[Rfam]
RNA: Small nucleolar RNA Z39
RNA sequence: GUACAAAUGAUGACAGCAUAACAGUAUGAACAAUGAUGAUACUGUAAACGCUUUCUGAAUGUA
Numbered sequence: 001g002u003a004c005a006a007a008u009g010a011u012g013a014c015a016g017c018a019u020a021a022c023a024g025u026a027u028g029a030a031c032a033a034u035g036a037u038g039a040u041a042c043u044g045u046a047a048a049c050g051c052u053u054u055c056u057g058a059a060u061g062u063a
Base pairs, nucleotide, nucleotide: 002063003062004061005060012054013053015052016051017050022044023043024042025041026040027039